The record is a 112-nucleotide sequence from Rhodococcus maanshanensis, which matches "SAM (S-adenosyl methionine) riboswitch aptamer" in Rfam. It scores 96 bits against the family's covariance model.
RNA sequence: GGUCAUGAGUGUCAGCGUCAAGCCCCGGCUCGCUGAUCGGCAACCCUCCAGUGCGGCGGGGUGCUCCGGGUGACGACCGGAUGGCGGUCAUCCGACGCCAUAAGCGCUCUAU
Numbered sequence: 001g002g003u004c005a006u007g008a009g010u011g012u013c014a015g016c017g018u019c020a021a022g023c024c025c026c027g028g029c030u031c032g033c034u035g036a037u038c039g040g041c042a043a044c045c046c047u048c049c050a051g052u053g054c055g056g057c058g059g060g061g062u063g064c065u066c067c068g069g070g071u072g073a074c075g076a077c078c079g080g081a082u083g084g085c086g087g088u089c090a091u092c093c094g095a096c097g098c099c100a101u102a103a104g105c106g107c108u109c110u111a112u
Base pairs, nucleotide, nucleotide: 001078002077003076004075009038011037012036013035014034015033016032021030022029039065040064041063044061045060046059048056049055081101082100083099084098085097086096087092